About this RNA: The record is a 195-nucleotide RNA from Candidatus Symbiopectobacterium sp. PLON1, which matches "Yersinia sRNA 276" in Rfam. The family's consensus secondary structure was predicted with RNAfold. The organism belongs to Symbiopectobacterium, within Bacteria.

[Rfam]
RNA sequence: CACUGACAUCAGCGAUUCAUUUUGCGAACCUUGUCCAACGGCCAGAUAGGCGUUCAUGCCUAGCUCUUUCAUCUGCUGUUCGCCAAUCACGCGCGUCACGAUGUUCGGGCUGUAGGUGUCCGCCAGUUGACGUGCCUGCGAGGCCAGAUAGCCAGCGUUACAGAUAUUCGGCGGCAUAUUGCCGAGAUCUUUCGC
Numbered sequence: 001c002a003c004u005g006a007c008a009u010c011a012g013c014g015a016u017u018c019a020u021u022u023u024g025c026g027a028a029c030c031u032u033g034u035c036c037a038a039c040g041g042c043c044a045g046a047u048a049g050g051c052g053u054u055c056a057u058g059c060c061u062a063g064c065u066c067u068u069u070c071a072u073c074u075g076c077u078g079u080u081c082g083c084c085a086a087u088c089a090c091g092c093g094c095g096u097c098a099c100g101a102u103g104u105u106c107g108g109g110c111u112g113u114a115g116g117u118g119u120c121c122g123c124c125a126g127u128u129g130a131c132g133u134g135c136c137u138g139c140g141a142g143g144c145c146a147g148a149u150a151g152c153c154a155g156c157g158u159u160a161c162a163g164a165u166a167u168u169c170g171g172c173g174g175c176a177u178a179u180u181g182c183c184g185a186g187a188u189c190u191u192u193c194g195c
Stems, first nucleotide, its partner, number of pairs: 005189002012032001014030001016028003020024001033043001035041001050059002062077003078135002081132002084129004091123003095119002099112002102109001136163003140159002143156002167186006